[Rfam]
The record is an 81-nucleotide RNA sequence from Sorghum bicolor, which matches "MIR5387 microRNA precursor family" in Rfam. Gene Ontology terms of the family: RISC complex and miRNA-mediated post-transcriptional gene silencing. The match comes from Rfam's covariance-model search (73 bits).
RNA sequence: UCAUAACACGAACUGGUGCUAAAGGGUCCUGCCCAACGGCUGUCGGGGCCGGGACCCUUUAGCACCGGUUCGUGUUACCAA
Numbered sequence: 001u002c003a004u005a006a007c008a009c010g011a012a013c014u015g016g017u018g019c020u021a022a023a024g025g026g027u028c029c030u031g032c033c034c035a036a037c038g039g040c041u042g043u044c045g046g047g048g049c050c051g052g053g054a055c056c057c058u059u060u061a062g063c064a065c066c067g068g069u070u071c072g073u074g075u076u077a078c079c080a081a
Stems, first nucleotide, its partner, number of pairs: 004077024029052002032047003036043002